A member of the RNA family "Potassium channel RNA editing signal" from Oreochromis niloticus, 114 nucleotides long. The family's consensus secondary structure is taken from published work. From the family's description: This family represents a group of sequences related to the human potassium channel Kv1.1 hairpin element which directs the efficient modification of an adenosine to inosine by an adenosine deaminase acting on RNA (ADAR). The ADAR modification causes an isoleucine/valine recoding event which lies in the ion-conducting pore of the potassium channel. The organism belongs to Oreochromis, within Eukaryota.

RNA sequence: GUAGGCUACGGAGACAUGUGUCCCAUUACCGUGGGGGGUAAGAUGGUGGGCACCUUGUGUGCCAUUGCAGGUGUGCUGACUAUUGCCUUGCCUGUUCCCGUCAUUGUUUCCAAC
Dot-bracket structure: ((.((..((((.(((..(.((...............((((........(((.........)))..........))))................)).)..))).))))..)).))